RNA sequence: CCAAAGGCUCUUUUCAGAGCCACUUAAUGAUUUCAAUUAAGAGUUUU
Numbered sequence: 001c002c003a004a005a006g007g008c009u010c011u012u013u014u015c016a017g018a019g020c021c022a023c024u025u026a027a028u029g030a031u032u033u034c035a036a037u038u039a040a041g042a043g044u045u046u047u
Base pairs, nucleotide, nucleotide: 006021007020008019009018010017011016

The record is a 47-nucleotide sequence from Gorilla gorilla, which matches "Histone 3' UTR stem-loop" in Rfam. Rfam links the family to the GO term mRNA 3'-end processing by stem-loop binding and cleavage. Taxonomically the source falls in Gorilla gorilla (Eukaryota, Eumetazoa, Sarcopterygii, Gorilla).